Rfam assigns this 77-nucleotide RNA sequence from Nicotiana tabacum to the family "MIR6145 microRNA precursor family".

RNA sequence: GUAAUGAGAAUUGUGACAUGAAGCACUAGCCGUUUGAAGAAAUUUCGGCCAAUGCUUAUGUUACAAUUUUCAUUACU
Numbered sequence: 001g002u003a004a005u006g007a008g009a010a011u012u013g014u015g016a017c018a019u020g021a022a023g024c025a026c027u028a029g030c031c032g033u034u035u036g037a038a039g040a041a042a043u044u045u046c047g048g049c050c051a052a053u054g055c056u057u058a059u060g061u062u063a064c065a066a067u068u069u070u071c072a073u074u075a076c077u
Stems, first nucleotide, its partner, number of pairs: 001076008010067010022056004027051001029049003

The base pairs follow the family's consensus structure, which was predicted with RNAalifold. Rfam links the family to the GO terms RISC complex and miRNA-mediated post-transcriptional gene silencing.